[Rfam]
The family of this 100-nucleotide sequence from Daphnia magna is "Selenocysteine transfer RNA". Pairs were carried over by alignment from the consensus structure, which is taken from published work.
RNA sequence: GCCUAGAUGAUCUUCGGUGGUCCGGGGUGCAGGCUUCAAAUGAGAUGGAAGUUACCUGUAGCUGACUAGCGUCAGAGUAGUUCGAUUCUACCUUCUGGGC
Numbered sequence: 001g002c003c004u005a006g007a008u009g010a011u012c013u014u015c016g017g018u019g020g021u022c023c024g025g026g027g028u029g030c031a032g033g034c035u036u037c038a039a040a041u042g043a044g045a046u047g048g049a050a051g052u053u054a055c056c057u058g059u060a061g062c063u064g065a066c067u068a069g070c071g072u073c074a075g076a077g078u079a080g081u082u083c084g085a086u087u088c089u090a091c092c093u094u095c096u097g098g099g100c
Stems, first nucleotide, its partner, number of pairs: 001100007009092001012027006028060006062075005077091004